Background:
Shown here is a 127-nucleotide sequence from Alkalibaculum sporogenes, a member of the family "Ribosomal protein L10 leader". From the family's description: This family is a putative r-protein leader autoregulatory structure found in B. subtilis and other low-GC Gram-positive bacteria. It is located in the 5' untranslated regions of mRNAs encoding ribosomal proteins L10 and L12 (rplJ-rplL). A Rho-independent transcription terminator structure that is probably involved in regulation is included at the 3' end. For this family Rfam cites "Ribosomal protein L10(L12)4 autoregulates expression of the Bacillus subtilis rplJL operon by a transcription attenuation mechanism" (Yakhnin et al., Nucleic Acids Res, 2015). It scores 74 bits against the family's covariance model.
RNA sequence: AAAUAAAUAAUCAAUGAACCGUAGACAAUAGGUGCUUAGGCUUAAACAUCCUAUCGAGGUUAUACAAUAAGUAUAUUAUAUACUCCCUUUGUAUGCCUAGCAUCAAAGGGAGUUUACUUUCGUCUGA
Dot-bracket structure: ...........................(((((.((....))........)))))............................(((((((((............)))))))))...............